[Rfam]
This 122-nucleotide RNA from Gossypium barbadense belongs to the Rfam family "MIR7504 microRNA precursor family". Rfam links the family to the GO terms RISC complex and miRNA-mediated post-transcriptional gene silencing. The match comes from Rfam's covariance-model search (83 bits).
RNA sequence: AAUAGUUUUAUGCCAUAUCAGUAAUCUUAUCUUGAAUUUCAGGAUCUUUUUCUGAAAAAAAUCAAAUCCGAAUUAAAAUACUAAAAUUUAGGAUAAGAAUACUAAUAUGGCAUAAAAUUAUU
Numbered sequence: 001a002a003u004a005g006u007u008u009u010a011u012g013c014c015a016u017a018u019c020a021g022u023a024a025u026c027u028u029a030u031c032u033u034g035a036a037u038u039u040c041a042g043g044a045u046c047u048u049u050u051u052c053u054g055a056a057a058a059a060a061a062u063c064a065a066a067u068c069c070g071a072a073u074u075a076a077a078a079u080a081c082u083a084a085a086a087u088u089u090a091g092g093a094u095a096a097g098a099a100u101a102c103u104a105a106u107a108u109g110g111c112a113u114a115a116a117a118u119u120a121u122u
Stems, first nucleotide, its partner, number of pairs: 001122018020103004025098003029094011041082002045078001047076002